[Rfam]
RNA: MIR838 microRNA precursor family
Organism: Arabidopsis lyrata
RNA sequence: GAGGACUUCCAUGGCCUCAAUCCACCUCCGGUGUUGUGCAAGAAUGAGAAGCAAAGCCUGUCUAUGUAUUGUGAGAUAUCUACUUCUAUGACUAGGAUAUAUGUACAAGACCGGCUUUUCUUCUUCUUCUUGCACAACCUGAGGUAAUUGGGGCUAUACAAGUCUUC
Dot-bracket structure: ((((((((..((((((((((...((((.(((.((((((((((((..(((((.((((((.((((.(((((......((((((.............))))))..))))))))).)))))).)))))..)))))))))))))))))))..))))))))))..))))))))